[Rfam]
RNA sequence: UUCUUAUCAAGAGCAGACGGAGGGACGAGCCCGAUGAUGUCGCAGCAACCGACCAGAGAUGGCACGGUGCUAAUUCUUGCAGCGAAAGCUGAGAGAUAAGAG
Numbered sequence: 001u002u003c004u005u006a007u008c009a010a011g012a013g014c015a016g017a018c019g020g021a022g023g024g025a026c027g028a029g030c031c032c033g034a035u036g037a038u039g040u041c042g043c044a045g046c047a048a049c050c051g052a053c054c055a056g057a058g059a060u061g062g063c064a065c066g067g068u069g070c071u072a073a074u075u076c077u078u079g080c081a082g083c084g085a086a087a088g089c090u091g092a093g094a095g096a097u098a099a100g101a102g
Stems, first nucleotide, its partner, number of pairs: 001102008013043002016041003022032003026079004044071004049067002051063001053061001075094001080091004
RNA: SAM riboswitch aptamer (S box leader)
Organism: Exiguobacterium chiriqhucha